[Rfam]
RNA sequence: GACAAAUACGUUUACUGGUCAUUUAAGUGGGGCAAAGGAAAUAUCCUUUUAAAACUCAAGCAAACUAGGUGUUUGUCUUGUAAACUGUCGGAGGAAAUAAGC
Numbered sequence: 001g002a003c004a005a006a007u008a009c010g011u012u013u014a015c016u017g018g019u020c021a022u023u024u025a026a027g028u029g030g031g032g033c034a035a036a037g038g039a040a041a042u043a044u045c046c047u048u049u050u051a052a053a054a055c056u057c058a059a060g061c062a063a064a065c066u067a068g069g070u071g072u073u074u075g076u077c078u079u080g081u082a083a084a085c086u087g088u089c090g091g092a093g094g095a096a097a098u099a100a101g102c
Base pairs, nucleotide, nucleotide: 007034009032011030016025017024018023044095045094046093047092048091049090057080058078060076061075062074063073064072065071
Dot-bracket structure: ......(.(.(....(((....)))....).).).........((((((.......((.((((((.....)))))).).).........)))))).......
A member of the RNA family "Small nucleolar RNA SNORA27" from Tursiops truncatus, 102 nucleotides long. ACA27 is a member of the H/ACA class of snoRNA that guide the sites of modification of uridines to pseudouridines. Gene Ontology terms of the family: nucleolus and RNA processing. The family's RNA type in Rfam is H/ACA-box small nucleolar RNA. Clan: SNORA27 clan. The pairing is the family consensus, mapped onto this sequence. Taxonomically the source falls in Tursiops (Eukaryota, Eumetazoa, Dipnotetrapodomorpha, Boreoeutheria).